Description
Rfam assigns this 71-nucleotide RNA from Anolis carolinensis to the family "Small nucleolar RNA SNORD59".
Nucleotides: 071
Base pairs, nucleotide, nucleotide: 001071002070003069004067
Number, partner (000 for none) and nucleotide at each position: 001071c002070c003069u004067u005000g006000a007000u008000g009000a010000u011000c012000c013000a014000u015000a016000a017000a018000a019000u020000a021000u022000g023000a024000c025000u026000u027000u028000c029000g030000u031000u032000c033000u034000u035000c036000u037000g038000a039000g040000c041000u042000u043000g044000c045000u046000g047000a048000a049000g050000c051000c052000a053000u054000g055000u056000u057000u058000u059000u060000g061000a062000u063000c064000u065000g066000a067004g068000a069003a070002g071001g
Pairs were carried over by alignment from the consensus structure, which was predicted with ILM.